[Rfam]
RNA sequence: CCAUUACCGGCCGCAGCACAGUUGGACCUGUCCAACUGGUUCACGGCUGGCUUCAGCGGGGGGGACAUAUAUCACAGCGUGUCCCGCGCUCGGCCCCGCCUCUUCUGGUUCUGCCUACUCCUACUUUCUGUAGGGGUAGGCGUCUUCCUGCUCCCCAACCGGUAGGUGGGGAGUUAA
Numbered sequence: 001c002c003a004u005u006a007c008c009g010g011c012c013g014c015a016g017c018a019c020a021g022u023u024g025g026a027c028c029u030g031u032c033c034a035a036c037u038g039g040u041u042c043a044c045g046g047c048u049g050g051c052u053u054c055a056g057c058g059g060g061g062g063g064g065a066c067a068u069a070u071a072u073c074a075c076a077g078c079g080u081g082u083c084c085c086g087c088g089c090u091c092g093g094c095c096c097c098g099c100c101u102c103u104u105c106u107g108g109u110u111c112u113g114c115c116u117a118c119u120c121c122u123a124c125u126u127u128c129u130g131u132a133g134g135g136g137u138a139g140g141c142g143u144c145u146u147c148c149u150g151c152u153c154c155c156c157a158a159c160c161g162g163u164a165g166g167u168g169g170g171g172a173g174u175u176a177a
Base pairs, nucleotide, nucleotide: 007050008049009048010047011046012045013044016041019038020037021036022035023034024033025032026031056099057098058097059096060095061094062085063084064083065082066081067080112142113141114140115139116138117137118136119135120134121133122132123131124130150174151173152172153171154170155169156168157167159166

The family of this 177-nucleotide RNA sequence from Orthohepacivirus hominis is "Hepatitis C virus (HCV) cis-acting replication element (CRE)". A reference for the family is Pirakitikulr et al. (2016), "The Coding Region of the HCV Genome Contains a Network of Regulatory RNA Structures", Mol Cell. NCBI's taxonomy places the organism under Viruses, Orthornavirae, Kitrinoviricota, Flasuviricetes, Orthohepacivirus. The family's RNA type in Rfam is cis-regulatory element. Rfam links the family to the GO term viral genome replication. The base pairs follow the family's consensus structure, which was predicted with RNAfold.